The family of this 76-nucleotide sequence from Alligator mississippiensis is "Mammalian CPEB3 ribozyme".
RNA sequence: AUUGCAAGUUUGAGACUACAGCAGAAGCACUCAUGGCACAGCCCUGUCAGAUUCCAAUGAAUCUGUGAAUUCUGCU
Numbered sequence: 001a002u003u004g005c006a007a008g009u010u011u012g013a014g015a016c017u018a019c020a021g022c023a024g025a026a027g028c029a030c031u032c033a034u035g036g037c038a039c040a041g042c043c044c045u046g047u048c049a050g051a052u053u054c055c056a057a058u059g060a061a062u063c064u065g066u067g068a069a070u071u072c073u074g075c076u
Base pairs, nucleotide, nucleotide: 012044014043016041017040020076021075022074023073024072025071026070027039048065049064050063051062052061053060054059
Record summary:
The family has 14 seed sequences and 5,706 matches in Rfam 15.1. The source organism's lineage runs through Eukaryota, Chordata, Teleostomi, Crocodylia and Alligator. The family's consensus secondary structure is taken from published work. The match comes from Rfam's covariance-model search (49 bits).